[Rfam]
RNA: Small Cajal body specific RNA 3
Organism: Vireo altiloquus
RNA sequence: ACUGGAAGCUGCUGGGACCAGUUGGGUCCAGUCAUGGGCAAAAUAAAUAUAUUUUUUGUCCACUGUUGCAGCCUUCCUAGAUUAAAGGGGAGGUCUCUGUCUGCUUUAGGACAGCCAGCUAAAUCAGAUCGUUCCCCUCCUUACACA
Numbered sequence: 001a002c003u004g005g006a007a008g009c010u011g012c013u014g015g016g017a018c019c020a021g022u023u024g025g026g027u028c029c030a031g032u033c034a035u036g037g038g039c040a041a042a043a044u045a046a047a048u049a050u051a052u053u054u055u056u057u058g059u060c061c062a063c064u065g066u067u068g069c070a071g072c073c074u075u076c077c078u079a080g081a082u083u084a085a086a087g088g089g090g091a092g093g094u095c096u097c098u099g100u101c102u103g104c105u106u107u108a109g110g111a112c113a114g115c116c117a118g119c120u121a122a123a124u125c126a127g128a129u130c131g132u133u134c135c136c137c138u139c140c141u142u143a144c145a146c147a
Base pairs, nucleotide, nucleotide: 004077005076006075008072009071010070011069012068035062036061037060038059039058043055045053089140090139091138092137093136097131099129100128101127103125105123106122107121108120109119